[Rfam]
RNA sequence: UUGGCCGUGAGGCAGCGUGCGGAGGAUCAGAAGGCAAACCUCGGAACAGGCGGCGAACCAGGUUGGCUGGCGAAGUCGGAUAACCCUGCAAAAGAAGGGGACGUCCCAUACCACCAUAGACUUCGCAAGUUAAGAGGACUGGAUUCGAGGGAAAGACGAUGAC
Numbered sequence: 001u002u003g004g005c006c007g008u009g010a011g012g013c014a015g016c017g018u019g020c021g022g023a024g025g026a027u028c029a030g031a032a033g034g035c036a037a038a039c040c041u042c043g044g045a046a047c048a049g050g051c052g053g054c055g056a057a058c059c060a061g062g063u064u065g066g067c068u069g070g071c072g073a074a075g076u077c078g079g080a081u082a083a084c085c086c087u088g089c090a091a092a093a094g095a096a097g098g099g100g101a102c103g104u105c106c107c108a109u110a111c112c113a114c115c116a117u118a119g120a121c122u123u124c125g126c127a128a129g130u131u132a133a134g135a136g137g138a139c140u141g142g143a144u145u146c147g148a149g150g151g152a153a154a155g156a157c158g159a160u161g162a163c
Stems, first nucleotide, its partner, number of pairs: 002015001004013003027162003035155001039150006047141003059137001066130003070126007078106004084099004

Notes: The family of this 163-nucleotide RNA sequence from Paenibacillus sabuli is "Group II catalytic intron D1-D4-3". Pairs were carried over by alignment from the consensus structure. It scores 63 bits against the family's covariance model. Group II introns are found in rRNA, tRNA and mRNA of organelles in fungi, plants and protists, and also in mRNA in bacteria. Lineage of the source: Bacteria > Bacillati > Bacilli > Paenibacillaceae > Paenibacillus. Gene Ontology term of the family: Group II intron splicing.